[Rfam]
The family of this 88-nucleotide RNA sequence from Araneus ventricosus is "Vault RNA". The match comes from Rfam's covariance-model search (36 bits). This family of RNAs are found as part of the enigmatic vault ribonucleoprotein complex. The complex consists of a major vault protein (MVP), two minor vault proteins (VPARP and TEP1), and several small untranslated RNA molecules. It has been suggested that the vault complex is involved in drug resistance. The family's consensus secondary structure is taken from published work.
RNA sequence: UCGCAGGCUUAGUCCAGUGGUUACUUCGUAGCAAUUCUGGGUAAAUGGUCUCGGAACGCUUUGACUAUGGACGCCGUCCUGCGAAUUC
Numbered sequence: 001u002c003g004c005a006g007g008c009u010u011a012g013u014c015c016a017g018u019g020g021u022u023a024c025u026u027c028g029u030a031g032c033a034a035u036u037c038u039g040g041g042u043a044a045a046u047g048g049u050c051u052c053g054g055a056a057c058g059c060u061u062u063g064a065c066u067a068u069g070g071a072c073g074c075c076g077u078c079c080u081g082c083g084a085a086u087u088c
Base pairs, nucleotide, nucleotide: 002083003082004081005080006079007078012072013071014070015069017068018067019066020065025055026054027053028052
Dot-bracket structure: .((((((....((((.((((....((((.......................)))).........)))))))).....)))))).....
Rfam classes the family as a non-coding RNA gene.